[Rfam]
RNA sequence: CUCUGGAAAGACAGCCCACCCGGGCUGCGCCCACGGUGCAAACCGCGUCCCGCGGUGAACCUCUCAGGCAUCCAUGACAGAG
Numbered sequence: 001c002u003c004u005g006g007a008a009a010g011a012c013a014g015c016c017c018a019c020c021c022g023g024g025c026u027g028c029g030c031c032c033a034c035g036g037u038g039c040a041a042a043c044c045g046c047g048u049c050c051c052g053c054g055g056u057g058a059a060c061c062u063c064u065c066a067g068g069c070a071u072c073c074a075u076g077a078c079a080g081a082g
Stems, first nucleotide, its partner, number of pairs: 001082005012027004029069003033064001036063001038061001042056004
The family of this 82-nucleotide RNA sequence from Actinoplanes utahensis is "Glycine riboswitch aptamer". A search with the family's covariance model found it, with a score of 42 bits. The organism belongs to Actinoplanes, within Bacteria.